[Rfam]
RNA: MIR6145 microRNA precursor family
RNA sequence: GUAAUGUGCAUUGUUACAUGUAGCACUGUAUCGCAUAAAAUUUGCCGGCCAGUGCUCAUGUGACGAUCCCCGUUGCU
Numbered sequence: 001g002u003a004a005u006g007u008g009c010a011u012u013g014u015u016a017c018a019u020g021u022a023g024c025a026c027u028g029u030a031u032c033g034c035a036u037a038a039a040a041u042u043u044g045c046c047g048g049c050c051a052g053u054g055c056u057c058a059u060g061u062g063a064c065g066a067u068c069c070c071c072g073u074u075g076c077u
Stems, first nucleotide, its partner, number of pairs: 001076006008069001010067010022056007031047001